[Rfam]
RNA sequence: CUCUGGAAAGCAGGCCUCGCAUGCUGAUGCGUGAGGCCUCACCGAAGGAGUAACCUUCCGGCUGCAUUCGUGCGCCGGGCGGGAAAUCUCUCAGGUACUCGGACAGAG
Dot-bracket structure: (((((......(((((((((..........))))))))).(((((..(((...((..........................))....))))).))).......)))))
This 108-nucleotide RNA from Pannonibacter phragmitetus belongs to the Rfam family "Glycine riboswitch aptamer". Rfam links the family to the GO term glycine biosynthetic process.